[Rfam]
RNA sequence: CUAUGGGGGGGGUAUGGGGACAGGGGGACAGUCCUGGGGUACAGGGUCAGUACCGGGGUCAGGCCUUGCCCCGUCCCCAGGCC
Numbered sequence: 001c002u003a004u005g006g007g008g009g010g011g012g013u014a015u016g017g018g019g020a021c022a023g024g025g026g027g028a029c030a031g032u033c034c035u036g037g038g039g040u041a042c043a044g045g046g047u048c049a050g051u052a053c054c055g056g057g058g059u060c061a062g063g064c065c066u067u068g069c070c071c072c073g074u075c076c077c078c079a080g081g082c083c
Stems, first nucleotide, its partner, number of pairs: 004080001006078001008077004017072003026064001029062001031059007
Dot-bracket structure: ...(.(.((((.....(((......(..(.(((((((...............)))))))..).).....))).))))).)...